[Rfam]
The record is a 74-nucleotide RNA from Coprobacter fastidiosus, which matches "tRNA" in Rfam. It scores 65 bits against the family's covariance model. The source organism's lineage runs through Bacteria, Pseudomonadati, Bacteroidota, Bacteroidia and Coprobacter fastidiosus. The family's consensus secondary structure is taken from published work.

RNA sequence: GCCGAUAUAGCUCAGUUGGCCAGAGCACGUGAUUUGUAAUCUCGGGGUCGUGGGUUCGAAUCCCUCUAUCGGCU
Numbered sequence: 001g002c003c004g005a006u007a008u009a010g011c012u013c014a015g016u017u018g019g020c021c022a023g024a025g026c027a028c029g030u031g032a033u034u035u036g037u038a039a040u041c042u043c044g045g046g047g048u049c050g051u052g053g054g055u056u057c058g059a060a061u062c063c064c065u066c067u068a069u070c071g072g073c074u
Stems, first nucleotide, its partner, number of pairs: 001073007010026004028044002031041002050066001052064003